[Rfam]
RNA: mir-1000 microRNA precursor family
Organism: Apis mellifera
Nucleotides: 072
Stems, first nucleotide, its partner, number of pairs: 003070004012061007022051002025048005
Number, partner (000 for none) and nucleotide at each position: 001000g002000c003070c004069g005068g006067g007000g008000a009000u010000a011000u012061u013060g014059u015058c016057u017056u018055g019000u020000c021000a022051c023050a024000g025048c026047a027046g028045u029044a030000c031000g032000c033000c034000u035000u036000u037000a038000a039000a040000g041000a042000g043000u044029u045028a046027c047026u048025g049000g050023u051022g052000u053000g054000a055018u056017g057016g058015g059014a060013c061012a062000u063000u064000g065000u066000c067006c068005u069004c070003g071000u072000c